[Rfam]
RNA sequence: GCCACGGGGGAACGCCGCUACGUUGCUUUCACUUGGUGUGCACUCGUAUGAAGCCGAAGGCAAACAUAGAUCCAUGUGAUGUGACGUAGUGGUACCCUCCCGUGU
Numbered sequence: 001g002c003c004a005c006g007g008g009g010g011a012a013c014g015c016c017g018c019u020a021c022g023u024u025g026c027u028u029u030c031a032c033u034u035g036g037u038g039u040g041c042a043c044u045c046g047u048a049u050g051a052a053g054c055c056g057a058a059g060g061c062a063a064a065c066a067u068a069g070a071u072c073c074a075u076g077u078g079a080u081g082u083g084a085c086g087u088a089g090u091g092g093u094a095c096c097c098u099c100c101c102g103u104g105u
Base pairs, nucleotide, nucleotide: 003104004103005102006101007100008099009098010097015092016091017090018089019088020087021086023084024083025082026081029079030078031077032076034074035073036072